RNA sequence: GCUGGUUGUGCUGUAGCAGCACAGAAUGGUUUGUGGGUUACACAGAUGCAGGCCAUACUGUGCUGCAGCAGUAAUGCCUGG
Numbered sequence: 001g002c003u004g005g006u007u008g009u010g011c012u013g014u015a016g017c018a019g020c021a022c023a024g025a026a027u028g029g030u031u032u033g034u035g036g037g038u039u040a041c042a043c044a045g046a047u048g049c050a051g052g053c054c055a056u057a058c059u060g061u062g063c064u065g066c067a068g069c070a071g072u073a074a075u076g077c078c079u080g081g
Base pairs, nucleotide, nucleotide: 002080004078005077006076013069014068016066017065018064019063020062021061022060023059024058026056027055028054029053030052031051032050033049034048035047